[Rfam]
RNA sequence: UUGAAUCUCGGAAAGAUUUAAAAAUUGCCCUGGUCGGGAUGGGUUAUUGACCCCUCGGGUUUCCUGUUUCCUAAAAACAGGUGGUGGAGUCACUUA
Numbered sequence: 001u002u003g004a005a006u007c008u009c010g011g012a013a014a015g016a017u018u019u020a021a022a023a024a025u026u027g028c029c030c031u032g033g034u035c036g037g038g039a040u041g042g043g044u045u046a047u048u049g050a051c052c053c054c055u056c057g058g059g060u061u062u063c064c065u066g067u068u069u070c071c072u073a074a075a076a077a078c079a080g081g082u083g084g085u086g087g088a089g090u091c092a093c094u095u096a
Stems, first nucleotide, its partner, number of pairs: 010029002013026002041053004057072003063081006
RNA: wcaG RNA